[Rfam]
Nucleotides: 123
Base pairs, nucleotide, nucleotide: 006111008109009108010107011074012073013072014071017032018031019030020029021028039068040067041066042065043064044063045062079104080103081102082101085098086097087096088095
Number, partner (000 for none) and nucleotide at each position: 001000a002000a003000c004000a005000u006111c007000c008109g009108a010107c011074a012073g013072g014071g015000g016000a017032g018031c019030g020029c021028c022000u023000g024000a025000g026000a027000c028021g029020g030019c031018g032017c033000u034000g035000a036000g037000a038000g039068u040067g041066c042065g043064g044063c045062u046000g047000g048000g049000a050000a051000u052000c053000c054000g055000g056000u057000u058000c059000c060000c061000a062045g063044g064043c065042c066041g067040c068039a069000g070000a071014c072013c073012c074011u075000c076000g077000a078000a079104c080103c081102u082101g083000a084000u085098c086097c087096g088095g089000g090000u091000c092000a093000u094000a095088c096087c097086g098085g099000c100000g101082u102081a103080g104079g105000g106000a107010g108009u109008c110000a111006g112000c113000a114000u115000g116000a117000a118000c119000a120000g121000c122000a123000c